RNA sequence: AAGUGUCAUUACGAGUUGCGGUUUAAAUACACCGCACGCCAACCUGCCUACCCGGGUAAGGUGGUGGCUCUCAGAGCAUUGAGAGAAUGAGGUCUCCUCGAGCGGAGGCAAUAGAGCGGGAAAGA
Numbered sequence: 001a002a003g004u005g006u007c008a009u010u011a012c013g014a015g016u017u018g019c020g021g022u023u024u025a026a027a028u029a030c031a032c033c034g035c036a037c038g039c040c041a042a043c044c045u046g047c048c049u050a051c052c053c054g055g056g057u058a059a060g061g062u063g064g065u066g067g068c069u070c071u072c073a074g075a076g077c078a079u080u081g082a083g084a085g086a087a088u089g090a091g092g093u094c095u096c097c098u099c100g101a102g103c104g105g106a107g108g109c110a111a112u113a114g115a116g117c118g119g120g121a122a123a124g125a
Base pairs, nucleotide, nucleotide: 006090007089008088009087010086015037017036018035019034020033021032038065039064040063043061044060045059046057047056048055051120052119053118054117092109093108094107095106096105097104
Notes: The family of this 125-nucleotide sequence from Mesosutterella multiformis is "SAM-I/IV (S-adenosyl methionine) riboswitch aptamer". Its Rfam clan is "SAM clan". Taxonomically the source falls in Mesosutterella (Bacteria, Pseudomonadota, Betaproteobacteria, Sutterellaceae). The literature on the family includes a 2008 paper in RNA by Weinberg et al., "The aptamer core of SAM-IV riboswitches mimics the ligand-binding site of SAM-I riboswitches". The match comes from Rfam's covariance-model search (51 bits).